A member of the RNA family "Ribosomal S15 leader" from Paraglaciecola hydrolytica, 132 nucleotides long. Rfam's curators write: The E. coli Ribosomal S15 gene 5' UTR can form two alternative structures. One that is a series of three hairpins, The other includes a pseudoknot. The organism belongs to Paraglaciecola, within Bacteria. For this family Rfam cites "Pseudoknot and translational control in the expression of the S15 ribosomal protein" (Benard et al., Biochimie, 1996). Gene Ontology term of the family: regulation of translation, ncRNA-mediated. The family's consensus secondary structure is taken from published work.
RNA sequence: UUGGCUUGCUGAAUUAGUGAUCGGCAGGUCUGUUUAAACUAUCCGGUUAACGCCGGUCCUACUUUGGAGAAAAAUAUGUCACUAACUAAUGUAGAAAGUGCAAAAAUCUUAGCUGAUUUUGGUGUUAAAGAA
Numbered sequence: 001u002u003g004g005c006u007u008g009c010u011g012a013a014u015u016a017g018u019g020a021u022c023g024g025c026a027g028g029u030c031u032g033u034u035u036a037a038a039c040u041a042u043c044c045g046g047u048u049a050a051c052g053c054c055g056g057u058c059c060u061a062c063u064u065u066g067g068a069g070a071a072a073a074a075u076a077u078g079u080c081a082c083u084a085a086c087u088a089a090u091g092u093a094g095a096a097a098g099u100g101c102a103a104a105a106a107u108c109u110u111a112g113c114u115g116a117u118u119u120u121g122g123u124g125u126u127a128a129a130g131a132a
Stems, first nucleotide, its partner, number of pairs: 007026006046086003066083002069080001